[Rfam]
RNA sequence: AGCUUUGCAGAGUGGCAGCAUAGCAGUCAGUGAGGUUUAUCUGGGGCAUGAUUACAGCUAAUUGAAAACUUUCCCCAAUACCCUGCGUGACUACUUGAAAUAUAGUUGGCAUUAGCAAUUCUAUAUUUCUCUACAGAGA
Number, nucleotide and partner (000 for none) at each position: 001a000002g000003c000004u000005u000006u000007g000008c000009a000010g000011a000012g000013u000014g000015g000016c000017a000018g000019c000020a052021u051022a000023g049024c000025a000026g047027u046028c045029a000030g000031u000032g000033a000034g042035g041036u000037u000038u000039a000040u000041c035042u034043g000044g000045g028046g027047c026048a000049u023050g000051a021052u020053u000054a000055c000056a000057g000058c000059u000060a000061a000062u000063u000064g000065a000066a000067a000068a000069c000070u000071u000072u000073c000074c000075c000076c000077a000078a000079u000080a000081c000082c000083c000084u115085g000086c000087g112088u111089g110090a000091c108092u000093a106094c105095u104096u000097g000098a000099a000100a000101u000102a000103u000104a095105g094106u093107u000108g091109g000110c089111a088112u087113u000114a000115g084116c000117a000118a000119u000120u000121c000122u000123a000124u000125a000126u000127u000128u139129c138130u137131c136132u000133a000134c000135a000136g131137a130138g129139a128